[Rfam]
RNA sequence: GUUGGCAAGUGAUGACAAGUUAAUAUUAUGCUAUACACUGAAUCUUGUGUGGACUAAAAACUCCGCUUAUUAUCUGAUGCAACA
Numbered sequence: 001g002u003u004g005g006c007a008a009g010u011g012a013u014g015a016c017a018a019g020u021u022a023a024u025a026u027u028a029u030g031c032u033a034u035a036c037a038c039u040g041a042a043u044c045u046u047g048u049g050u051g052g053a054c055u056a057a058a059a060a061c062u063c064c065g066c067u068u069a070u071u072a073u074c075u076g077a078u079g080c081a082a083c084a
Base pairs, nucleotide, nucleotide: 003082005080006079007078
About this RNA:
The record is an 84-nucleotide RNA from Miscanthus lutarioriparius, which matches "Small nucleolar RNA R16" in Rfam. Pairs were carried over by alignment from the consensus structure, which was predicted with PFOLD. The match comes from Rfam's covariance-model search (77 bits). The family's RNA type in Rfam is C/D-box small nucleolar RNA.